[Rfam]
RNA sequence: AGUUUUGUAUCGCUGAAUUUCCAGGGGUUUUGUGGAAAACGGGGGAACCAACGAGUGCCGGCGGCAGCAGCCGCGGACUCAUGGGGUGAAUCCUUGCAGCGGCUCACCGCCGCACUGCAGGGUAGGGCGACUCUCACGCCCGAAUCCGACAGCUAACCUCGUAAGCGUAACGAGAGAGGCAAC
Numbered sequence: 001a002g003u004u005u006u007g008u009a010u011c012g013c014u015g016a017a018u019u020u021c022c023a024g025g026g027g028u029u030u031u032g033u034g035g036a037a038a039a040c041g042g043g044g045g046a047a048c049c050a051a052c053g054a055g056u057g058c059c060g061g062c063g064g065c066a067g068c069a070g071c072c073g074c075g076g077a078c079u080c081a082u083g084g085g086g087u088g089a090a091u092c093c094u095u096g097c098a099g100c101g102g103c104u105c106a107c108c109g110c111c112g113c114a115c116u117g118c119a120g121g122g123u124a125g126g127g128c129g130a131c132u133c134u135c136a137c138g139c140c141c142g143a144a145u146c147c148g149a150c151a152g153c154u155a156a157c158c159u160c161g162u163a164a165g166c167g168u169a170a171c172g173a174g175a176g177a178g179g180c181a182a183c
Stems, first nucleotide, its partner, number of pairs: 011167004018038006039162006049083002084147003092122008125141004